[Rfam]
RNA: mir-399 microRNA precursor family
RNA sequence: UCCAGAAUGGCAGGGCAAUUCUCCUUUGGCAGAAACACCAUCUCCAUUCAUUUCCAUAAGCUGAAGCAUUUCUGCCAAAGGAGAACGGCCCUGACAUUCGUCU
Numbered sequence: 001u002c003c004a005g006a007a008u009g010g011c012a013g014g015g016c017a018a019u020u021c022u023c024c025u026u027u028g029g030c031a032g033a034a035a036c037a038c039c040a041u042c043u044c045c046a047u048u049c050a051u052u053u054c055c056a057u058a059a060g061c062u063g064a065a066g067c068a069u070u071u072c073u074g075c076c077a078a079a080g081g082a083g084a085a086c087g088g089c090c091c092u093g094a095c096a097u098u099c100g101u102c103u
Stems, first nucleotide, its partner, number of pairs: 005099005011093006019085001021083004027077009